The family of this 69-nucleotide RNA from Oryctolagus cuniculus is "Small nucleolar RNA SNORD82". Gene Ontology terms of the family: nucleolus and RNA processing. snoRNA U82 or Z25 is found in both humans and mice. Pairs were carried over by alignment from the consensus structure, which was predicted with PFOLD.
RNA sequence: AGCACAAGUGAUGAACGACAAGGGGACUUAAUGCUGAAGCCUGAUGGUACAUGCGAGACACUGAUGUGC
Numbered sequence: 001a002g003c004a005c006a007a008g009u010g011a012u013g014a015a016c017g018a019c020a021a022g023g024g025g026a027c028u029u030a031a032u033g034c035u036g037a038a039g040c041c042u043g044a045u046g047g048u049a050c051a052u053g054c055g056a057g058a059c060a061c062u063g064a065u066g067u068g069c
Base pairs, nucleotide, nucleotide: 002069003068004067005066006065